[Rfam]
RNA sequence: GAUGAUGACACGAAACAUUCUUAUCGUAGGAAGGCGCAUGGGCAAGGCGGCGUAGCCGUCUGGCGGAAGCCACUCAUGCGCAGAACACAGGCUCCUUCGGGGGCCUUUUUUAUUGGCCCGGU
Dot-bracket structure: ........(................)..((...(((((((((..((((((.....)))))).((....))..))))))))).....(.(((((((....)))))))).........))....
Numbered sequence: 001g002a003u004g005a006u007g008a009c010a011c012g013a014a015a016c017a018u019u020c021u022u023a024u025c026g027u028a029g030g031a032a033g034g035c036g037c038a039u040g041g042g043c044a045a046g047g048c049g050g051c052g053u054a055g056c057c058g059u060c061u062g063g064c065g066g067a068a069g070c071c072a073c074u075c076a077u078g079c080g081c082a083g084a085a086c087a088c089a090g091g092c093u094c095c096u097u098c099g100g101g102g103g104c105c106u107u108u109u110u111u112a113u114u115g116g117c118c119c120g121g122u
Stems, first nucleotide, its partner, number of pairs: 009026001029118002034081009045061006063070002087107001089106007

Rfam assigns this 122-nucleotide sequence from Nitratireductor pacificus to the family "Rhizobiales sRNA Atu_C8". It scores 107 bits against the family's covariance model. The literature on the family includes a 2012 paper in RNA Biol by Wilms et al., "Deep sequencing uncovers numerous small RNAs on all four replicons of the plant pathogen Agrobacterium tumefaciens".